Description: The family of this 89-nucleotide RNA from Azohydromonas caseinilytica is "SAH (S-adenosyl-L-homocysteine) riboswitch aptamer". The source organism's lineage runs through Bacteria, Pseudomonadati, Burkholderiales, Sphaerotilaceae and Azohydromonas. Gene Ontology terms of the family: S-adenosylhomocysteine metabolic process and regulation of gene expression. The base pairs follow the family's consensus structure, which is taken from published work. It scores 64 bits against the family's covariance model.

RNA sequence: CUUUCCGAGGAGCGUUGCAAGGCCGGCUGUCGCAUGACCCUGGCCCCAGGCUCGGAAACCUUCCACAGAAGCAACCGCGCUCACCCGCA
Numbered sequence: 001c002u003u004u005c006c007g008a009g010g011a012g013c014g015u016u017g018c019a020a021g022g023c024c025g026g027c028u029g030u031c032g033c034a035u036g037a038c039c040c041u042g043g044c045c046c047c048a049g050g051c052u053c054g055g056a057a058a059c060c061u062u063c064c065a066c067a068g069a070a071g072c073a074a075c076c077g078c079g080c081u082c083a084c085c086c087g088c089a
Stems, first nucleotide, its partner, number of pairs: 002058007021045006